[Rfam]
RNA: 6S / SsrS RNA
Organism: Euhalothece natronophila
RNA sequence: UACUUACUGCAACGUUGGUGACUGCCAAUAAUGUUUUUUGAUCUACAAGUAAGACCUAUAAGGGAACCAACCCCUCUUGUGGCAGUAAACCGGGCAUAGUACCCGGAAACUUAAAGCAAGAUGUCGGUGCCCACCUGACAACAGGAAGGUCAGAAGCUGAGGUAAAACGGCGUUGCGGUAAUUAA
Numbered sequence: 001u002a003c004u005u006a007c008u009g010c011a012a013c014g015u016u017g018g019u020g021a022c023u024g025c026c027a028a029u030a031a032u033g034u035u036u037u038u039u040g041a042u043c044u045a046c047a048a049g050u051a052a053g054a055c056c057u058a059u060a061a062g063g064g065a066a067c068c069a070a071c072c073c074c075u076c077u078u079g080u081g082g083c084a085g086u087a088a089a090c091c092g093g094g095c096a097u098a099g100u101a102c103c104c105g106g107a108a109a110c111u112u113a114a115a116g117c118a119a120g121a122u123g124u125c126g127g128u129g130c131c132c133a134c135c136u137g138a139c140a141a142c143a144g145g146a147a148g149g150u151c152a153g154a155a156g157c158u159g160a161g162g163u164a165a166a167a168c169g170g171c172g173u174u175g176c177g178g179u180a181a182u183u184a185a
Stems, first nucleotide, its partner, number of pairs: 002183001004181012018168002035156003039152006062132003066128003070124002075121006085110002090106005